Shown here is a 137-nucleotide RNA from Anabarilius grahami, a member of the family "U11 spliceosomal RNA". Lineage of the source: Eukaryota > Otomorpha > Otophysi > Xenocyprididae > Anabarilius. It is annotated as a spliceosomal small nuclear RNA. The match comes from Rfam's covariance-model search (64 bits).
RNA sequence: AAAAAGGGCAUCUACUAUGAUUGGCAUAACUGUGGAAAGAUUUUUCCUGACACAAUUAUGGAAUCGUUAUCAAGGCUCUUUGGAUGUACAAUUUUUGUAAUCUGAGGCUACCAUUGAUCGAUGUUCAUGGUGCCUUA
Numbered sequence: 001a002a003a004a005a006g007g008g009c010a011u012c013u014a015c016u017a018u019g020a021u022u023g024g025c026a027u028a029a030c031u032g033u034g035g036a037a038a039g040a041u042u043u044u045u046c047c048u049g050a051c052a053c054a055a056u057u058a059u060g061g062a063a064u065c066g067u068u069a070u071c072a073a074g075g076c077u078c079u080u081u082g083g084a085u086g087u088a089c090a091a092u093u094u095u096u097g098u099a100a101u102c103u104g105a106g107g108c109u110a111c112c113a114u115u116g117a118u119c120g121a122u123g124u125u126c127a128u129g130g131u132g133c134c135u136u137a
Stems, first nucleotide, its partner, number of pairs: 008087005013026001015024003027058003031054004035047001037045002059082004105135004110131005116126002119123001